[Rfam]
RNA sequence: CUCCCAUGAUGAACUCUGUUUUGUGCCAUUGUGUCUGGGCCACUGAUGCUUCAUGAUGGUAAUGAGGAUCUGAGGGG
Numbered sequence: 001c002u003c004c005c006a007u008g009a010u011g012a013a014c015u016c017u018g019u020u021u022u023g024u025g026c027c028a029u030u031g032u033g034u035c036u037g038g039g040c041c042a043c044u045g046a047u048g049c050u051u052c053a054u055g056a057u058g059g060u061a062a063u064g065a066g067g068a069u070c071u072g073a074g075g076g077g
Base pairs, nucleotide, nucleotide: 001077002076003075004074
Dot-bracket structure: ((((.....................................................................))))

The record is a 77-nucleotide sequence from Melopsittacus undulatus, which matches "Small nucleolar RNA SNORD66" in Rfam.
Rfam classes the family as a C/D-box small nucleolar RNA.
The literature on the family includes a 2001 paper in EMBO J by Huttenhofer et al., "RNomics: an experimental approach that identifies 201 candidates for novel, small, non-messenger RNAs in mouse".
The base pairs follow the family's consensus structure, which was predicted with RNAalifold.
snoRNA HBII-142 is part of the C/D family of snoRNAs.